mir-3569 microRNA precursor family: a 57-nucleotide sequence from Rattus norvegicus. Rfam's curators put it in the seed alignment. Its family is annotated with miRNA-mediated post-transcriptional gene silencing and RISC complex in the Gene Ontology. The organism belongs to Rattus, within Eukaryota. The family's consensus secondary structure was predicted with RNAalifold.
RNA sequence: UCGGAGGACAGCAGACUCAGGUCGAAAUCGGGACCUGAGUCUGCGCUCCUCUCCAGC
Numbered sequence: 001u002c003g004g005a006g007g008a009c010a011g012c013a014g015a016c017u018c019a020g021g022u023c024g025a026a027a028u029c030g031g032g033a034c035c036u037g038a039g040u041c042u043g044c045g046c047u048c049c050u051c052u053c054c055a056g057c
Stems, first nucleotide, its partner, number of pairs: 003052006011044013